[Rfam]
RNA sequence: GUGUUUUUCAUAGUAUUAGAUUUAAGGUUAACAAAAGGUUGGAGUACGGCGGUACUCCUUUUUUUUGC
Numbered sequence: 001g002u003g004u005u006u007u008u009c010a011u012a013g014u015a016u017u018a019g020a021u022u023u024a025a026g027g028u029u030a031a032c033a034a035a036a037g038g039u040u041g042g043a044g045u046a047c048g049g050c051g052g053u054a055c056u057c058c059u060u061u062u063u064u065u066u067g068c
Stems, first nucleotide, its partner, number of pairs: 041058007
A member of the RNA family "Bacteroidetes FopS (family of paralogous sRNAs)" from Phocaeicola salanitronis, 68 nucleotides long. Rfam describes the family as follows. The RNA-binding protein RbpB and BTncRNA_FopS sRNA are involved in the post-transcription regulation of polysaccharide utilisation loci (PUL). Lineage of the source: Bacteria > Bacteroidota > Bacteroidaceae > Phocaeicola > Phocaeicola salanitronis.